[Rfam]
RNA: MIR2617 microRNA precursor family
RNA sequence: AUGUAGUGUAGCAUGCCCGUUUGGUGCUUAACACUGAUGAUUUUAUUUAUACUUUGAUAUAUUUGGGAUAUCGGGGUGUUACAAAAAA
Numbered sequence: 001a002u003g004u005a006g007u008g009u010a011g012c013a014u015g016c017c018c019g020u021u022u023g024g025u026g027c028u029u030a031a032c033a034c035u036g037a038u039g040a041u042u043u044u045a046u047u048u049a050u051a052c053u054u055u056g057a058u059a060u061a062u063u064u065g066g067g068a069u070a071u072c073g074g075g076g077u078g079u080u081a082c083a084a085a086a087a088a
Stems, first nucleotide, its partner, number of pairs: 002088001004086001007083008016075004021070001